[Rfam]
RNA: Streptomyces RNA 3202
Organism: Streptomyces longwoodensis
RNA sequence: CCACGUCCCGACGCAAUCCCCCCCGGCGCCGGGACUCUCCCAGAGCCGGCCUCCGGCGCCUGUCCCCCCGGGCGCCGGAGCCGGCUCCUCC
Numbered sequence: 001c002c003a004c005g006u007c008c009c010g011a012c013g014c015a016a017u018c019c020c021c022c023c024c025g026g027c028g029c030c031g032g033g034a035c036u037c038u039c040c041c042a043g044a045g046c047c048g049g050c051c052u053c054c055g056g057c058g059c060c061u062g063u064c065c066c067c068c069c070g071g072g073c074g075c076c077g078g079a080g081c082c083g084g085c086u087c088c089u090c091c
Stems, first nucleotide, its partner, number of pairs: 005035006012028003043087007051080002054077009